[Rfam]
RNA sequence: UGCCUUAUGUUAUGACAUAGGGGACGAGGAUUGUUGUCAACUCCUGAAGGUAAUUAUUUACUAAUUCUUUCA
Numbered sequence: 001u002g003c004c005u006u007a008u009g010u011u012a013u014g015a016c017a018u019a020g021g022g023g024a025c026g027a028g029g030a031u032u033g034u035u036g037u038c039a040a041c042u043c044c045u046g047a048a049g050g051u052a053a054u055u056a057u058u059u060a061c062u063a064a065u066u067c068u069u070u071c072a
Base pairs, nucleotide, nucleotide: 003022004021005020006019007018008017009016010015050067053065054064055063056062
The family of this 72-nucleotide RNA from Acetivibrio cellulolyticus is "RT-6 RNA". It is one of the family's seed sequences. It is annotated as a small RNA.